[Rfam]
RNA sequence: UAUAGCUAGCUCUUUUGGAAUUUAUCCAGCAGGCUUUCUGGCAUUUGCCAGAAAGCCCUG
Numbered sequence: 001u002a003u004a005g006c007u008a009g010c011u012c013u014u015u016u017g018g019a020a021u022u023u024a025u026c027c028a029g030c031a032g033g034c035u036u037u038c039u040g041g042c043a044u045u046u047g048c049c050a051g052a053a054a055g056c057c058c059u060g
Stems, first nucleotide, its partner, number of pairs: 032057011
Dot-bracket structure: ...............................(((((((((((....)))))))))))...
The family of this 60-nucleotide sequence from Pan troglodytes is "U7 small nuclear RNA".
The family has 49 seed sequences and 10,439 matches in Rfam 15.1.
For this family Rfam cites "U7 snRNAs: a computational survey" (Marz et al., Genomics Proteomics Bioinformatics, 2007).
A search with the family's covariance model found it, with a score of 57 bits.
About the family: Animal histone pre-mRNAs are spliced by a different mechanism than nuclear pre-mRNAs and self-splicing introns.